RNA: bZIP non canonical Hac1/Xbp1 intron
RNA sequence: AGGGGUCUCCGGUAUGACACAAUAUCCUGCCGUGGUAUUGUGUGACCUGCAGUGUCAACCGGAACCCU
Numbered sequence: 001a002g003g004g005g006u007c008u009c010c011g012g013u014a015u016g017a018c019a020c021a022a023u024a025u026c027c028u029g030c031c032g033u034g035g036u037a038u039u040g041u042g043u044g045a046c047c048u049g050c051a052g053u054g055u056c057a058a059c060c061g062g063a064a065c066c067c068u
Base pairs, nucleotide, nucleotide: 001068002067003066004065006063007062010061011060012059013058021039022038023037024036025035026034044056045055046054